[Rfam]
Nucleotides: 135
Stems, first nucleotide, its partner, number of pairs: 001059004007050002010047001012045006019037004071127001073125006082117002084114004091107004
Number, partner (000 for none) and nucleotide at each position: 001059g002058c003057c004056c005000u006000g007050u008049g009000g010047u011000u012045g013044c014043u015042g016041g017040a018000c019037g020036c021035u022034g023000g024000u025000u026000u027000a028000u029000a030000u031000g032000u033000g034022c035021a036020g037019u038000g039000u040017u041016u042015c043014a044013g045012u046000u047010g048000g049008u050007a051000g052000a053000a054000a055000u056004g057003g058002g059001c060000c061000a062000a063000a064000a065000g066000u067000g068000a069000u070000a071127c072000u073125g074124u075123g076122a077121u078120u079000u080000u081000u082117g083116u084114g085113u086112g087111g088000a089000u090000u091107c092106u093105g094104u095000g096000g097000u098000a099000c100000g101000u102000g103000a104094g105093c106092a107091g108000c109000u110000u111087c112086c113085a114084u115000a116083g117082c118000c119000c120078g121077g122076u123075c124074a125073c126000a127071g128000u129000a130000a131000c132000a133000g134000a135000c